[Rfam]
RNA sequence: CUGUUGAAUAUGAGCAUUGGAGAACAUCAAACUAUGUUGAAAUGGAGGAUACAUCAGUUUGAUUUUCUCCAAUGUCUCACCUUCAGCAG
Numbered sequence: 001c002u003g004u005u006g007a008a009u010a011u012g013a014g015c016a017u018u019g020g021a022g023a024a025c026a027u028c029a030a031a032c033u034a035u036g037u038u039g040a041a042a043u044g045g046a047g048g049a050u051a052c053a054u055c056a057g058u059u060u061g062a063u064u065u066u067c068u069c070c071a072a073u074g075u076c077u078c079a080c081c082u083u084c085a086g087c088a089g
Stems, first nucleotide, its partner, number of pairs: 004086005011079004016073006023066002026063005032057002
Annotation: The record is an 89-nucleotide sequence from Rhynchospora breviuscula, which matches "MIR2275 microRNA precursor family" in Rfam. The family has 13 seed sequences and 785 matches in Rfam 15.1. Its family is annotated with miRNA-mediated post-transcriptional gene silencing and RISC complex in the Gene Ontology. NCBI's taxonomy places the organism under Eukaryota, Petrosaviidae, commelinids, Poales, Rhynchospora. The match comes from Rfam's covariance-model search (68 bits).